[Rfam]
RNA: c-di-GMP-I riboswitch aptamer
RNA sequence: AGCUGACAAAGCCACAACCGUCGCGAGGCGGUGUCGGAAAGCCACGGAUCUCCCCAUAAAGGAGACCGCCGGGUUACCUGC
Dot-bracket structure: ...........((...((((((....))))))...))..((((.(((.(((((.......)))))...)))))))......
Numbered sequence: 001a002g003c004u005g006a007c008a009a010a011g012c013c014a015c016a017a018c019c020g021u022c023g024c025g026a027g028g029c030g031g032u033g034u035c036g037g038a039a040a041g042c043c044a045c046g047g048a049u050c051u052c053c054c055c056a057u058a059a060a061g062g063a064g065a066c067c068g069c070c071g072g073g074u075u076a077c078c079u080g081c
Stems, first nucleotide, its partner, number of pairs: 012037002017032006040075004045071003049065005